[Rfam]
RNA sequence: AGCGAGGCUAGAGUCACACCCUGGCUCCUCUCUCUAGUCUUGGUGUGCUGAAGCACUCGCAGAUAAACUCUCUGCUAAUCCAUUGACUGGUGACCAAUAAUGAACCAGUUAAUCACCUGCUGAGAGACACGA
Numbered sequence: 001a002g003c004g005a006g007g008c009u010a011g012a013g014u015c016a017c018a019c020c021c022u023g024g025c026u027c028c029u030c031u032c033u034c035u036a037g038u039c040u041u042g043g044u045g046u047g048c049u050g051a052a053g054c055a056c057u058c059g060c061a062g063a064u065a066a067a068c069u070c071u072c073u074g075c076u077a078a079u080c081c082a083u084u085g086a087c088u089g090g091u092g093a094c095c096a097a098u099a100a101u102g103a104a105c106c107a108g109u110u111a112a113u114c115a116c117c118u119g120c121u122g123a124g125a126g127a128c129a130c131g132a
Stems, first nucleotide, its partner, number of pairs: 002060005007054003012049002015047006023039004070124003074120002082113005088107004094102001

A member of the RNA family "Small nucleolar RNA SNORA3/SNORA45 family" from Danionella cerebrum, 132 nucleotides long. From the family's description: The members of this family belong to the H/ACA class of snoRNAs which are thought to guide the sites of modification of uridines to pseudouridines. This family includes mouse snoMBI-28 and human homologues ACA3 (SNORA3) and ACA3-2 (SNORA45). Both ACA3 and ACA3-2 share the same host gene. MBI-28, ACA3 and ACA3-2 are all predicted to guide the pseudouridylation of residues in 28S rRNA. Pairs were carried over by alignment from the consensus structure, which was predicted with RNAalifold. NCBI's taxonomy places the organism under Eukaryota, Opisthokonta, Chordata, Actinopteri, Danionella. The match comes from Rfam's covariance-model search (83 bits). It is annotated as an H/ACA-box small nucleolar RNA.